The record is a 140-nucleotide RNA from Targowskia paracuniculus, which matches "Molybdenum/Tungsten riboswitch aptamer (Moco RNA motif)" in Rfam. Lineage of the source: Bacteria > Pseudomonadota > Gammaproteobacteria > Pasteurellaceae > Targowskia. Rfam links the family to the GO terms molybdenum ion binding, regulation of gene expression and tungstate binding. The match comes from Rfam's covariance-model search (63 bits).

RNA sequence: UCUUUUUGUGAUCACCGAGCCUGCUUCGCCUAAGUCAAAAUGAUAUGGACGCAGAGCCUGUAACCUUGCAAAAGGUUCAAUGGAUUGUUGAGAAAUCAGCCGUCCACUCGUGUUUAGAAAGGUGUCAAAUGCAAACAAUC
Numbered sequence: 001u002c003u004u005u006u007u008g009u010g011a012u013c014a015c016c017g018a019g020c021c022u023g024c025u026u027c028g029c030c031u032a033a034g035u036c037a038a039a040a041u042g043a044u045a046u047g048g049a050c051g052c053a054g055a056g057c058c059u060g061u062a063a064c065c066u067u068g069c070a071a072a073a074g075g076u077u078c079a080a081u082g083g084a085u086u087g088u089u090g091a092g093a094a095a096u097c098a099g100c101c102g103u104c105c106a107c108u109c110g111u112g113u114u115u116a117g118a119a120a121g122g123u124g125u126c127a128a129a130u131g132c133a134a135a136c137a138a139u140c
Stems, first nucleotide, its partner, number of pairs: 003134002006131001013124004019057002021054004029048002034044004060078001062076001064074001081106005087100005107117002